[Rfam]
RNA sequence: CGGGCCGUGUACUCCCAGACGGCGUCGCCGUCGAUCAGGGCGCGGUCGCCGAAGUAGGCCCCGUCGGCGUGGACCCCGAGCACCGUCUCGUCCCCGUACGGGCCGGUGCCGACCUUCUCGACCUUGCCGUGCGCCAGCAGGAAGACACGGUCCGCCGCGUCCCCGGCGCCGGCCAGCACCUGGCCGGCGGCGAUUUCACGUUGCUCGCACCGCCGGGCCAGCUCUCCGAGCACCUCCUCGUCGCCGAACUCCCGCAGGGCGGGCAGUUCCCCGAGCUCGGCGGGGAUGACCGUGACCCGGUCACCGGUCUGCACGAAGGUCACCCGGCCGUCCCCGACCGAGUAGCUCAGCCUGCGGUUCACCCGGUAGGUGCCACCUUGUACCUGCACCCAUGGCAGCAUCUUCAGCAACCACCGUGAGGUGAUCUCCUGCAUCUGCGGAGCGGACUUGGUGGUCGUCGCGAGGUUCCGCGCCGCUGCCGUGCCCAGACUCUGCUGCGGCGGCAC
Numbered sequence: 001c002g003g004g005c006c007g008u009g010u011a012c013u014c015c016c017a018g019a020c021g022g023c024g025u026c027g028c029c030g031u032c033g034a035u036c037a038g039g040g041c042g043c044g045g046u047c048g049c050c051g052a053a054g055u056a057g058g059c060c061c062c063g064u065c066g067g068c069g070u071g072g073a074c075c076c077c078g079a080g081c082a083c084c085g086u087c088u089c090g091u092c093c094c095c096g097u098a099c100g101g102g103c104c105g106g107u108g109c110c111g112a113c114c115u116u117c118u119c120g121a122c123c124u125u126g127c128c129g130u131g132c133g134c135c136a137g138c139a140g141g142a143a144g145a146c147a148c149g150g151u152c153c154g155c156c157g158c159g160u161c162c163c164c165g166g167c168g169c170c171g172g173c174c175a176g177c178a179c180c181u182g183g184c185c186g187g188c189g190g191c192g193a194u195u196u197c198a199c200g201u202u203g204c205u206c207g208c209a210c211c212g213c214c215g216g217g218c219c220a221g222c223u224c225u226c227c228g229a230g231c232a233c234c235u236c237c238u239c240g241u242c243g244c245c246g247a248a249c250u251c252c253c254g255c256a257g258g259g260c261g262g263g264c265a266g267u268u269c270c271c272c273g274a275g276c277u278c279g280g281c282g283g284g285g286a287u288g289a290c291c292g293u294g295a296c297c298c299g300g301u302c303a304c305c306g307g308u309c310u311g312c313a314c315g316a317a318g319g320u321c322a323c324c325c326g327g328c329c330g331u332c333c334c335c336g337a338c339c340g341a342g343u344a345g346c347u348c349a350g351c352c353u354g355c356g357g358u359u360c361a362c363c364c365g366g367u368a369g370g371u372g373c374c375a376c377c378u379u380g381u382a383c384c385u386g387c388a389c390c391c392a393u394g395g396c397a398g399c400a401u402c403u404u405c406a407g408c409a410a411c412c413a414c415c416g417u418g419a420g421g422u423g424a425u426c427u428c429c430u431g432c433a434u435c436u437g438c439g440g441a442g443c444g445g446a447c448u449u450g451g452u453g454g455u456c457g458u459c460g461c462g463a464g465g466u467u468c469c470g471c472g473c474c475g476c477u478g479c480c481g482u483g484c485c486c487a488g489a490c491u492c493u494g495c496u497g498c499g500g501c502g503g504c505a506c
Stems, first nucleotide, its partner, number of pairs: 007389005016380001018328001021325002025322001027320003031316002035313001036311004041306002045304002048301004054233002059228001063224001065111004077102001080099001082097002085094001118221001120219001122217002126213002129210002131206001133204002136201001140197001143196002150191001154188004159184002165174003235295002240290004245285001249283002252280003256277002261270002329342001331340001354376001356374002360372004391431002394428002397425001399423003403418001405416001407415001437476004442471005447465003451461002478506001480502003484499001486497003

The family of this 506-nucleotide RNA sequence from Streptomyces sp. Ncost-T10-10d is "Saccharopolyspora sRNA 350". Gene Ontology term of the family: regulation of secondary metabolite biosynthetic process. The source organism's lineage runs through Bacteria, Bacillati, Actinomycetota, Actinomycetes and Streptomyces. It scores 145 bits against the family's covariance model. For this family Rfam cites "Prediction and characterization of small non-coding RNAs related to secondary metabolites in Saccharopolyspora erythraea" (Liu et al., PLoS One, 2013). It is annotated as an antisense RNA.